A member of the RNA family "mir-8799 microRNA precursor family" from Canis lupus, 92 nucleotides long.
A search with the family's covariance model found it, with a score of 54 bits.
The family has 7 seed sequences and 20,638 matches in Rfam 15.1.
[Rfam]
RNA sequence: GGGAGCGCCGGACCUUGGGCUGUGUCCCCCAGCGCCCUGUGCUCCAGGACCUGCGCCACUGGAAUUACGCUCCAGGGGCCAUGCUGCCUCCU
Numbered sequence: 001g002g003g004a005g006c007g008c009c010g011g012a013c014c015u016u017g018g019g020c021u022g023u024g025u026c027c028c029c030c031a032g033c034g035c036c037c038u039g040u041g042c043u044c045c046a047g048g049a050c051c052u053g054c055g056c057c058a059c060u061g062g063a064a065u066u067a068c069g070c071u072c073c074a075g076g077g078g079c080c081a082u083g084c085u086g087c088c089u090c091c092u
Base pairs, nucleotide, nucleotide: 001089002088003087007084008083010080011079014076015075017073018072019071021069022068023067024066025063026062029061032056033055034054035053039051041050043048